[Rfam]
RNA sequence: GGGCAAUCAUGAUAAAUUUAAGGCUUGUUUCUCAAAACAUUCGCAGUUGCAGCCUAAGAGCUUUUGCCUUGCCAGGCUCUGAUGCUGCUGAUUCCUUCCUUGGAUGUCUGAGCCU
Number, nucleotide and partner (000 for none) at each position: 001g115002g114003g113004c112005a000006a000007u000008c000009a000010u000011g000012a000013u000014a000015a000016a000017u000018u000019u000020a000021a000022g000023g000024c000025u000026u000027g000028u000029u000030u000031c000032u000033c000034a000035a000036a000037a000038c000039a000040u000041u000042c000043g000044c000045a000046g000047u000048u000049g000050c000051a000052g000053c000054c000055u000056a000057a000058g000059a078060g077061c076062u075063u074064u000065u000066g000067c000068c000069u000070u000071g000072c000073c000074a063075g062076g061077c060078u059079c000080u000081g000082a000083u000084g000085c000086u000087g000088c000089u000090g000091a000092u000093u000094c000095c000096u000097u000098c000099c000100u000101u000102g000103g000104a000105u000106g000107u000108c000109u000110g000111a000112g004113c003114c002115u001
This 115-nucleotide RNA from Triticum turgidum belongs to the Rfam family "Small nucleolar RNA SNORD14". Its family is annotated with nucleolus and RNA processing in the Gene Ontology. The family's consensus secondary structure was predicted with PFOLD. The literature on the family includes a 1996 paper in Nucleic Acids Res by Samarsky et al., "An essential domain in Saccharomyces cerevisiae U14 snoRNA is absent in vertebrates, but conserved in other yeasts". About the family: U14 small nucleolar RNA (U14 snoRNA) is required for early cleavages of eukaryotic precursor rRNAs. In yeasts, this molecule possess a stem-loop region (known as the Y-domain) which is essential for function. A similar structure, but with a different consensus sequence, is found in plants, but is absent in vertebrates. The family's RNA type in Rfam is C/D-box small nucleolar RNA. The match comes from Rfam's covariance-model search (72 bits).